[Rfam]
RNA sequence: UCCUGUCUCGCAAAAAGUAGCCGAUUGUGGCUGCCUGCCCUCCAUCUAUAAGCGAUGGAAGGGAUAGCGAGGCGGGUUAUU
Number, nucleotide and partner (000 for none) at each position: 001u000002c076003c075004u074005g073006u072007c000008u070009c069010g068011c067012a000013a000014a000015a000016a000017g034018u033019a032020g031021c030022c029023g000024a000025u000026u000027g000028u000029g022030g021031c020032u019033g018034c017035c000036u000037g000038c063039c062040c061041u060042c000043c000044a000045u000046c000047u000048a000049u000050a000051a000052g000053c000054g000055a000056u000057g000058g000059a000060a041061g040062g039063g038064a000065u000066a000067g011068c010069g009070a008071g000072g006073c005074g004075g003076g002077u000078u000079a000080u000081u000
The record is an 81-nucleotide RNA, which matches "DUF3800-IX RNA" in Rfam.
By type it is a small RNA.
From the family's description: Actinobacteria, Firmicutes (1 example), Nitrospirae, Proteobacteria, Verrucomicrobia (1 example).